Shown here is a 418-nucleotide RNA from Hallella multisaccharivorax, a member of the family "Bacterial RNase P class A". The family's consensus secondary structure is taken from published work. Rfam links the family to the GO terms ribonuclease P activity, dimeric ribonuclease P complex and tRNA processing. Rfam describes the family as follows. Ribonuclease P (RNase P) is a ubiquitous endoribonuclease, found in archaea, bacteria and eukarya as well as chloroplasts and mitochondria. Its best characterised activity is the generation of mature 5'-ends of tRNAs by cleaving the 5'-leader elements of precursor-tRNAs. Cellular RNase Ps are ribonucleoproteins.
RNA sequence: ACAGUGCCCCGGCCUGUCGCUGGCAUCCGCAAGAGUGCAAGAGGAAAGUCCGGGCAGCGCAAGGCGCUCCACUUCUGAAAAUGGAAGCUGCCGGUAACGGUAGGUGAAGGUAGAAGAAAACAACCGCCAUUCUGUGAAACUGCAGGCAUCCUAUGAUCCUGUAAGUCGGAAGAGGCAAGGGUGAGAAGGUGGUGCAAGAGACCACCAGCCGGCGGGUGACCGCCGUGGCUGUACCGUCUGGAGGCUGCAAGUUCGCGUAAACCAUCGUCAUGUCCAGGGCCGCCUGCCCGAUGCUUCCUCGAAAGCAACGAUGGAGGGUAGAAUGCUGAAGCUGUAGGGUGACUUACAGAUUAGAUAAAUGACAAGGCUCCUCACCAUAGUGAGGGUACAGAACCCGGCUUAUCAGGGCACUGUCUUA
Numbered sequence: 001a002c003a004g005u006g007c008c009c010c011g012g013c014c015u016g017u018c019g020c021u022g023g024c025a026u027c028c029g030c031a032a033g034a035g036u037g038c039a040a041g042a043g044g045a046a047a048g049u050c051c052g053g054g055c056a057g058c059g060c061a062a063g064g065c066g067c068u069c070c071a072c073u074u075c076u077g078a079a080a081a082u083g084g085a086a087g088c089u090g091c092c093g094g095u096a097a098c099g100g101u102a103g104g105u106g107a108a109g110g111u112a113g114a115a116g117a118a119a120a121c122a123a124c125c126g127c128c129a130u131u132c133u134g135u136g137a138a139a140c141u142g143c144a145g146g147c148a149u150c151c152u153a154u155g156a157u158c159c160u161g162u163a164a165g166u167c168g169g170a171a172g173a174g175g176c177a178a179g180g181g182u183g184a185g186a187a188g189g190u191g192g193u194g195c196a197a198g199a200g201a202c203c204a205c206c207a208g209c210c211g212g213c214g215g216g217u218g219a220c221c222g223c224c225g226u227g228g229c230u231g232u233a234c235c236g237u238c239u240g241g242a243g244g245c246u247g248c249a250a251g252u253u254c255g256c257g258u259a260a261a262c263c264a265u266c267g268u269c270a271u272g273u274c275c276a277g278g279g280c281c282g283c284c285u286g287c288c289c290g291a292u293g294c295u296u297c298c299u300c301g302a303a304a305g306c307a308a309c310g311a312u313g314g315a316g317g318g319u320a321g322a323a324u325g326c327u328g329a330a331g332c333u334g335u336a337g338g339g340u341g342a343c344u345u346a347c348a349g350a351u352u353a354g355a356u357a358a359a360u361g362a363c364a365a366g367g368c369u370c371c372u373c374a375c376c377a378u379a380g381u382g383a384g385g386g387u388a389c390a391g392a393a394c395c396c397g398g399c400u401u402a403u404c405a406g407g408g409c410a411c412u413g414u415c416u417u418a
Stems, first nucleotide, its partner, number of pairs: 001414009011403001012368003015364004020041002023038004028033001046401003050398005055247004063299002067243005072087005088103001090101004104238001109235004124180002126176003130172001131170004188206006208229001209227001210225006251324004262314005292307005332349007